[Rfam]
RNA sequence: GGUUUCAACAACCCCGUAGGUCGGGCGCCGCGACAAGCGGCGCAGUGGACCUACUGGAGCC
Numbered sequence: 001g002g003u004u005u006c007a008a009c010a011a012c013c014c015c016g017u018a019g020g021u022c023g024g025g026c027g028c029c030g031c032g033a034c035a036a037g038c039g040g041c042g043c044a045g046u047g048g049a050c051c052u053a054c055u056g057g058a059g060c061c
Stems, first nucleotide, its partner, number of pairs: 001061007013047001014045001016054007023046001025043007
Shown here is a 61-nucleotide RNA, a member of the family "nadA riboswitch". It is one of the family's seed sequences. It is annotated as a small RNA. For this family Rfam cites "Structure and ligand binding of the ADP-binding domain of the NAD(+) riboswitch" (Huang et al., RNA, 2020).